The family of this 167-nucleotide RNA sequence from Leptolyngbya sp. FACHB-321 is "Group II catalytic intron D1-D4-3". NCBI's taxonomy places the organism under Bacteria, Bacillati, Cyanobacteriota, Leptolyngbyales, Leptolyngbya.

Nucleotides: 167
Base pairs, nucleotide, nucleotide: 002015003014004013005012006011028167030165035160036159040154041153042152043151044150045149046147047146048145049144050143062142063141064140065139066138067137073134074133075132078129080127081126082125083124087113088112089111092107093106094105095104
Number, partner (000 for none) and nucleotide at each position: 001000g002015c003014u004013u005012c006011c007000g008000u009000g010000a011006g012005g013004a014003a015002g016000g017000g018000u019000c020000u021000g022000a023000a024000g025000g026000a027000a028167g029000c030165c031000a032000g033000c034000g035160g036159c037000a038000a039000a040154c041153c042152u043151g044150c045149a046147a047146g048145c049144c050143g051000a052000c053000g054000a055000a056000c057000a058000g059000a060000a061000a062142c063141g064140u065139c066138a067137u068000a069000g070000a071000a072000g073134g074133c075132u076000g077000a078129g079000a080127u081126u082125c083124u084000u085000g086000g087113g088112g089111c090000g091000a092107g093106u094105u095104g096000g097000c098000a099000c100000a101000a102000c103000a104095c105094a106093a107092c108000g109000a110000a111089g112088c113087c114000g115000u116000c117000u118000g119000g120000u121000u122000c123000a124083g125082g126081g127080a128000a129078c130000a131000c132075a133074g134073u135000a136000a137067a138066u139065g140064a141063c142062g143050c144049g145048g146047u147046u148000g149045u150044g151043c152042a153041g154040g155000g156000a157000c158000a159036g160035u161000u162000c163000a164000c165030g166000u167028u